[Rfam]
RNA sequence: CUUGCAACAACAUCCUGAUGCUGCCAGAGCGGGUCUGGUGGCUCCAGCAUCAGUGAUUUUGUUGCAGG
Numbered sequence: 001c002u003u004g005c006a007a008c009a010a011c012a013u014c015c016u017g018a019u020g021c022u023g024c025c026a027g028a029g030c031g032g033g034u035c036u037g038g039u040g041g042c043u044c045c046a047g048c049a050u051c052a053g054u055g056a057u058u059u060u061g062u063u064g065c066a067g068g
Base pairs, nucleotide, nucleotide: 006063007062008061009060010059012057013056014055015053016052017051018050019049020048021047022046023045